[Rfam]
5' ureB small RNA: a 285-nucleotide RNA sequence from Streptomyces indicus. The match comes from Rfam's covariance-model search (44 bits). Pairs were carried over by alignment from the consensus structure, which was predicted with mfold.
RNA sequence: CCUCCAUGAUGCGCGGCGAGAGGAGGUGGACGUGGGUGUCCACGGCUCCGGCGGUGGCGAUCAUGCCCUCGCCGGACACGAUCGAGGUGCCCGUGCCGACGACGACCUCCACACCGUCGAGCGUGUCCGGGUUCCCGGCCCGCCCGAUCGCGCGGAUACGGCCUUCGCGGAUGCCGAUCGAGGUCUUGCGGAUGCCCUGCACGGCGUCGAUCACCAGGACGUUGCUGAUGACGACGUCGCAGGUCUCGCGCACGGCGGCGGCCUUGAGGUGCAGCCCGUCGCGGG
Numbered sequence: 001c002c003u004c005c006a007u008g009a010u011g012c013g014c015g016g017c018g019a020g021a022g023g024a025g026g027u028g029g030a031c032g033u034g035g036g037u038g039u040c041c042a043c044g045g046c047u048c049c050g051g052c053g054g055u056g057g058c059g060a061u062c063a064u065g066c067c068c069u070c071g072c073c074g075g076a077c078a079c080g081a082u083c084g085a086g087g088u089g090c091c092c093g094u095g096c097c098g099a100c101g102a103c104g105a106c107c108u109c110c111a112c113a114c115c116g117u118c119g120a121g122c123g124u125g126u127c128c129g130g131g132u133u134c135c136c137g138g139c140c141c142g143c144c145c146g147a148u149c150g151c152g153c154g155g156a157u158a159c160g161g162c163c164u165u166c167g168c169g170g171a172u173g174c175c176g177a178u179c180g181a182g183g184u185c186u187u188g189c190g191g192a193u194g195c196c197c198u199g200c201a202c203g204g205c206g207u208c209g210a211u212c213a214c215c216a217g218g219a220c221g222u223u224g225c226u227g228a229u230g231a232c233g234a235c236g237u238c239g240c241a242g243g244u245c246u247c248g249c250g251c252a253c254g255g256c257g258g259c260g261g262c263c264u265u266g267a268g269g270u271g272c273a274g275c276c277c278g279u280c281g282c283g284g285g
Stems, first nucleotide, its partner, number of pairs: 002285002005283001007281003011153004015073006027050003032046001036043002054066003074145002080139001082137001086135002089132004093127001095126002101118003104114001161270004167262002170259001172257004183220006197209001223252003230245002235242001